Plastid-atpF group II-D1 intron: a 53-nucleotide RNA from Populus alba. From the family's description: Plastid atpF is a non-coding RNA (ncRNA) recognised in plastids. The base pairs follow the family's consensus structure, which was predicted with LocARNA. Lineage of the source: Eukaryota > Spermatophyta > eudicotyledons > Salicaceae > Populus. Its family is annotated with Group II intron splicing in the Gene Ontology.
RNA sequence: AAAUUGUUUUUCGGUAUAGAACACUCAUGUCGAAAAAGGAUUUUGAACCCUUU
Numbered sequence: 001a002a003a004u005u006g007u008u009u010u011u012c013g014g015u016a017u018a019g020a021a022c023a024c025u026c027a028u029g030u031c032g033a034a035a036a037a038g039g040a041u042u043u044u045g046a047a048c049c050c051u052u053u
Base pairs, nucleotide, nucleotide: 011033012032013031014030015029016028017027